[Rfam]
RNA sequence: CUCAGAAAAAGGCAAACUCAUCUGAAAAGAGAGGACGCAAAGCCACAGAUCUAAGGUGUUAAGAGCUAAGAUGGCUGGGCUAUCUGG
Numbered sequence: 001c002u003c004a005g006a007a008a009a010a011g012g013c014a015a016a017c018u019c020a021u022c023u024g025a026a027a028a029g030a031g032a033g034g035a036c037g038c039a040a041a042g043c044c045a046c047a048g049a050u051c052u053a054a055g056g057u058g059u060u061a062a063g064a065g066c067u068a069a070g071a072u073g074g075c076u077g078g079g080c081u082a083u084c085u086g087g
Stems, first nucleotide, its partner, number of pairs: 012038002017033003021030003041081004046077003049072003056066002059063001

c-di-GMP-I riboswitch aptamer: an 87-nucleotide RNA from Virgibacillus sp. SK37.
The family's consensus secondary structure is taken from published work.
It scores 67 bits against the family's covariance model.
NCBI's taxonomy places the organism under Bacteria, Bacillati, Bacillota, Bacillaceae, Virgibacillus.